[Rfam]
RNA sequence: UGCCCACCAAGGAAUUGGUUAAGCCCAUACGGACAGGCGGGGCAGCUGCCGA
Numbered sequence: 001u002g003c004c005c006a007c008c009a010a011g012g013a014a015u016u017g018g019u020u021a022a023g024c025c026c027a028u029a030c031g032g033a034c035a036g037g038c039g040g041g042g043c044a045g046c047u048g049c050c051g052a
Stems, first nucleotide, its partner, number of pairs: 001044005006019005
The family of this 52-nucleotide RNA is "Streptococcus sRNA SpF59 (ldcC RNA)". A reference for the family is Mann et al. (2012), "Control of virulence by small RNAs in Streptococcus pneumoniae", PLoS Pathog. By type it is a small RNA. It is one of the family's seed sequences.